Shown here is a 357-nucleotide RNA from Clostridium sp. BL8, a member of the family "Bacterial RNase P class A". The match comes from Rfam's covariance-model search (301 bits).
RNA sequence: CGAGUAAGCCAGACAAUCGCUGCUGAAGGAAACUUCAGGAGAGGAAAGUCCGAGCUCCAUAGGGCAGGGUGCUGGGUAACUCCCAGUGGAGGCGACUCUAAGGAAAGUGCAACAGAGAGAUACCGCCAAAGGCAUGAUUUAUCAUGUACUGGUAAGGGUGGAAAGGCGAGGUAAGAGCUCACCAGCGCAAUGGCGACUUUGCGGCUAUGUAAACCCCAUCUGGAGCAAGAUCAAUAGGGAGACAUAUAGGGGCUGCCCGUCCCGUCUCCGGGUGUAUCGCUUGAGCCCACUUGGUAACAAUGGGCCUAGAUAGAUGAUUGUCUAACACAGAACUCGGCUUACAGACUUACUCGUUCC
Numbered sequence: 001c002g003a004g005u006a007a008g009c010c011a012g013a014c015a016a017u018c019g020c021u022g023c024u025g026a027a028g029g030a031a032a033c034u035u036c037a038g039g040a041g042a043g044g045a046a047a048g049u050c051c052g053a054g055c056u057c058c059a060u061a062g063g064g065c066a067g068g069g070u071g072c073u074g075g076g077u078a079a080c081u082c083c084c085a086g087u088g089g090a091g092g093c094g095a096c097u098c099u100a101a102g103g104a105a106a107g108u109g110c111a112a113c114a115g116a117g118a119g120a121u122a123c124c125g126c127c128a129a130a131g132g133c134a135u136g137a138u139u140u141a142u143c144a145u146g147u148a149c150u151g152g153u154a155a156g157g158g159u160g161g162a163a164a165g166g167c168g169a170g171g172u173a174a175g176a177g178c179u180c181a182c183c184a185g186c187g188c189a190a191u192g193g194c195g196a197c198u199u200u201g202c203g204g205c206u207a208u209g210u211a212a213a214c215c216c217c218a219u220c221u222g223g224a225g226c227a228a229g230a231u232c233a234a235u236a237g238g239g240a241g242a243c244a245u246a247u248a249g250g251g252g253c254u255g256c257c258c259g260u261c262c263c264g265u266c267u268c269c270g271g272g273u274g275u276a277u278c279g280c281u282u283g284a285g286c287c288c289a290c291u292u293g294g295u296a297a298c299a300a301u302g303g304g305c306c307u308a309g310a311u312a313g314a315u316g317a318u319u320g321u322c323u324a325a326c327a328c329a330g331a332a333c334u335c336g337g338c339u340u341a342c343a344g345a346c347u348u349a350c351u352c353g354u355u356c357c
Base pairs, nucleotide, nucleotide: 001353002352003351004350005349006348007347008346010344012322013321014320015319016318017317018316020041021040023038024037025036026035027034028033046340047339048338050337051336052335053334054333055225056224057223058222062258063257064256065255067221068220069219070218071217072086073085074084075083076082087101088099089098090097091096102216103215107214108213109210110209111208123157124156125153126152127151132150165183166182168180169179170178185205186203187202188201189200190199192197229278230277231276238269239268240267241266242265243264249263250262251261252260253259285305286304287303288302289301291300292299293298